Rfam assigns this 78-nucleotide RNA from Flavobacterium sp. PL002 to the family "Flavo-1 RNA". By type it is a small RNA.
[Rfam]
RNA sequence: UUAUAGUUGCGUGAAGGAUAGCAGUGAAAAUCCUCCCGAUUUUUCUUCGGGAGAUUGUAACGGAUAGCCUGACGCUGC
Numbered sequence: 001u002u003a004u005a006g007u008u009g010c011g012u013g014a015a016g017g018a019u020a021g022c023a024g025u026g027a028a029a030a031u032c033c034u035c036c037c038g039a040u041u042u043u044u045c046u047u048c049g050g051g052a053g054a055u056u057g058u059a060a061c062g063g064a065u066a067g068c069c070u071g072a073c074g075c076u077g078c
Stems, first nucleotide, its partner, number of pairs: 015070003019066002024061002029056004035051005

It scores 58 bits against the family's covariance model.